[Rfam]
RNA sequence: CUUGAGUUGUCUCUCAUGUCUAGACCAUUUGUGAGAAGGGAGUUUUUGUUUACACCAAUACCCCCCAGUCUCUAAAUUUGUAAGAAGUAUUAUGCUCAAUUAAGGAACAUAGCUAGUUCGACAUACCAUACUACCCUUUUUAAAACUAUCCUAUAUGUUUGAUGCUAGCAUAGCGUAAUUUUGUGUUCUCAUGGUGCAGCAGGGUUAGUUUAUUGUGUACCUCUAGAUAUAUAUUCUCUUGCUGCGUAGGGUUCCCAAGCUGCCAAAAACUUUUAAAAAUUAGUGAUCUGUUCCCCAAACCCCCAUUCAAUAAGAAAGGUCUACCUGUAGCUCACAGUCACAGCUAUUAGAGCUGUCCUUGCUUCUUUGGGUUUACUGUUUUAGUUAAUUAGUUACCCUAUGAAAGUCUGAUCCUUCAGAAGUUAGGUAUAGAAGUAAGUCGAUUAAGUUCAUUCAUGACUUUUCCAGAUGUUGCAUACAUAACUUUUUUUAUUUGUAUUCUCAAAAUCAUAUAAAAUCAUUUACACCUUGGUCAUGGUAGCUAAGAAUAUUGUAUCUAAAAUUGGGGAGUGGGGAGAUGUUUGGUUAUAUUCCCUUCUCAUCGAUGGUCUAGAUGUGCGAGGUGACUCUCAUGGAGG
Numbered sequence: 001c002u003u004g005a006g007u008u009g010u011c012u013c014u015c016a017u018g019u020c021u022a023g024a025c026c027a028u029u030u031g032u033g034a035g036a037a038g039g040g041a042g043u044u045u046u047u048g049u050u051u052a053c054a055c056c057a058a059u060a061c062c063c064c065c066c067a068g069u070c071u072c073u074a075a076a077u078u079u080g081u082a083a084g085a086a087g088u089a090u091u092a093u094g095c096u097c098a099a100u101u102a103a104g105g106a107a108c109a110u111a112g113c114u115a116g117u118u119c120g121a122c123a124u125a126c127c128a129u130a131c132u133a134c135c136c137u138u139u140u141u142a143a144a145a146c147u148a149u150c151c152u153a154u155a156u157g158u159u160u161g162a163u164g165c166u167a168g169c170a171u172a173g174c175g176u177a178a179u180u181u182u183g184u185g186u187u188c189u190c191a192u193g194g195u196g197c198a199g200c201a202g203g204g205u206u207a208g209u210u211u212a213u214u215g216u217g218u219a220c221c222u223c224u225a226g227a228u229a230u231a232u233a234u235u236c237u238c239u240u241g242c243u244g245c246g247u248a249g250g251g252u253u254c255c256c257a258a259g260c261u262g263c264c265a266a267a268a269a270c271u272u273u274u275a276a277a278a279a280u281u282a283g284u285g286a287u288c289u290g291u292u293c294c295c296c297a298a299a300c301c302c303c304c305a306u307u308c309a310a311u312a313a314g315a316a317a318g319g320u321c322u323a324c325c326u327g328u329a330g331c332u333c334a335c336a337g338u339c340a341c342a343g344c345u346a347u348u349a350g351a352g353c354u355g356u357c358c359u360u361g362c363u364u365c366u367u368u369g370g371g372u373u374u375a376c377u378g379u380u381u382u383a384g385u386u387a388a389u390u391a392g393u394u395a396c397c398c399u400a401u402g403a404a405a406g407u408c409u410g411a412u413c414c415u416u417c418a419g420a421a422g423u424u425a426g427g428u429a430u431a432g433a434a435g436u437a438a439g440u441c442g443a444u445u446a447a448g449u450u451c452a453u454u455c456a457u458g459a460c461u462u463u464u465c466c467a468g469a470u471g472u473u474g475c476a477u478a479c480a481u482a483a484c485u486u487u488u489u490u491u492a493u494u495u496g497u498a499u500u501c502u503c504a505a506a507a508u509c510a511u512a513u514a515a516a517a518u519c520a521u522u523u524a525c526a527c528c529u530u531g532g533u534c535a536u537g538g539u540a541g542c543u544a545a546g547a548a549u550a551u552u553g554u555a556u557c558u559a560a561a562a563u564u565g566g567g568g569a570g571u572g573g574g575g576a577g578a579u580g581u582u583u584g585g586u587u588a589u590a591u592u593c594c595c596u597u598c599u600c601a602u603c604g605a606u607g608g609u610c611u612a613g614a615u616g617u618g619c620g621a622g623g624u625g626a627c628u629c630u631c632a633u634g635g636a637g638g
Base pairs, nucleotide, nucleotide: 001637002636003635004629005628006627007626008625009624010623011622012621013620015618016617017616018615019614020613021612022611023610024609025608026607027606028605029604031602032601033600034599035598036597037596038595039594040593041592042591043590052581053580054579056577064572067571071569072568073567
Overview:
The family of this 638-nucleotide RNA is "MIR824 microRNA precursor family". Rfam links the family to the GO terms RISC complex and miRNA-mediated post-transcriptional gene silencing. The family's consensus secondary structure was predicted with WAR. The sequence is in the family's curated seed alignment.